The record is a 71-nucleotide sequence from Aphidius gifuensis, which matches "mir-12 microRNA precursor family" in Rfam. A reference for the family is Werren et al. (2010), "Functional and evolutionary insights from the genomes of three parasitoid Nasonia species", Science. Pairs were carried over by alignment from the consensus structure, which was predicted with RNAalifold. A search with the family's covariance model found it, with a score of 67 bits.
[Rfam]
RNA sequence: CAGGUGUGAGUAUUACAUCAGGUACUGGUGUCAUUGUUAAUAAACCAGUGCUUGUGAAAUACUUUCACUAG
Numbered sequence: 001c002a003g004g005u006g007u008g009a010g011u012a013u014u015a016c017a018u019c020a021g022g023u024a025c026u027g028g029u030g031u032c033a034u035u036g037u038u039a040a041u042a043a044a045c046c047a048g049u050g051c052u053u054g055u056g057a058a059a060u061a062c063u064u065u066c067a068c069u070a071g
Stems, first nucleotide, its partner, number of pairs: 001071001003069004009063004016056003021052009